[Rfam]
RNA: Ribosomal protein L10 leader
Organism: Melghiribacillus thermohalophilus
Nucleotides: 152
Stems, first nucleotide, its partner, number of pairs: 028058005034046003116137009
Number, partner (000 for none) and nucleotide at each position: 001000a002000u003000g004000a005000a006000u007000a008000c009000a010000u011000g012000c013000a014000u015000u016000a017000u018000a019000c020000c021000g022000u023000a024000g025000a026000c027000a028058g029057u030056a031055g032054g033000u034046g035045c036044g037000g038000u039000u040000c041000a042000u043000u044036c045035g046034c047000u048000u049000a050000a051000u052000u053000u054032c055031c056030u057029a058028c059000c060000g061000a062000g063000g064000u065000a066000u067000a068000c069000g070000a071000g072000u073000c074000g075000g076000a077000a078000a079000u080000c081000a082000a083000c084000u085000g086000c087000a088000u089000g090000g091000u092000u093000u094000a095000g096000c097000u098000g099000u100000g101000c102000a103000g104000a105000u106000u107000u108000a109000c110000g111000a112000u113000a114000c115000g116137u117136g118135c119134c120133u121132c122131c123130a124129u125000g126000u127000c128000u129124a130123u131122g132121g133120a134119g135118g136117c137116a138000u139000u140000u141000u142000u143000u144000u145000a146000g147000a148000u149000u150000u151000u152000c